[Rfam]
RNA sequence: CAUGGAGGAAGCUGACUUGGCUAGUGUGGUACAGAGAAGUUAACUUGUUUACAUGUCUAGUCCAUG
Numbered sequence: 001c002a003u004g005g006a007g008g009a010a011g012c013u014g015a016c017u018u019g020g021c022u023a024g025u026g027u028g029g030u031a032c033a034g035a036g037a038a039g040u041u042a043a044c045u046u047g048u049u050u051a052c053a054u055g056u057c058u059a060g061u062c063c064a065u066g
Stems, first nucleotide, its partner, number of pairs: 001066006009058001011056002014049003019045002022042004026032002
Rfam assigns this 66-nucleotide RNA from Sarcophilus harrisii to the family "MAT2A 3'UTR stem loop F". The literature on the family includes a 2011 paper in Genome Res by Parker et al., "New families of human regulatory RNA structures identified by comparative analysis of vertebrate genomes". The family's RNA type in Rfam is cis-regulatory element. The family's consensus secondary structure is taken from published work.